[Rfam]
RNA sequence: UCCCCGUCGGGAUCCCUCUGGGUUUUCGGCGGGCCCUCGUCGCUCUUUCGAAAGGAAGUCGUCGGGACGAAAGCGCGGUUUUUAAGGAUGUCUUUUGUUCGCGCGUCAACGCCCUCCAUACUUUGCUCUUCGAGAGCAUUGCGGAGAGGAAACAAAAACUGGUCCUCGUU
Numbered sequence: 001u002c003c004c005c006g007u008c009g010g011g012a013u014c015c016c017u018c019u020g021g022g023u024u025u026u027c028g029g030c031g032g033g034c035c036c037u038c039g040u041c042g043c044u045c046u047u048u049c050g051a052a053a054g055g056a057a058g059u060c061g062u063c064g065g066g067a068c069g070a071a072a073g074c075g076c077g078g079u080u081u082u083u084a085a086g087g088a089u090g091u092c093u094u095u096u097g098u099u100c101g102c103g104c105g106u107c108a109a110c111g112c113c114c115u116c117c118a119u120a121c122u123u124u125g126c127u128c129u130u131c132g133a134g135a136g137c138a139u140u141g142c143g144g145a146g147a148g149g150a151a152a153c154a155a156a157a158a159c160u161g162g163u164c165c166u167c168g169u170u
Stems, first nucleotide, its partner, number of pairs: 010027003015022002035069001036066004041061002044058001049054001087164003090159002093157006112149002114146004124138006
RNA: Ascomycota telomerase RNA, nucleotides 941 to 1110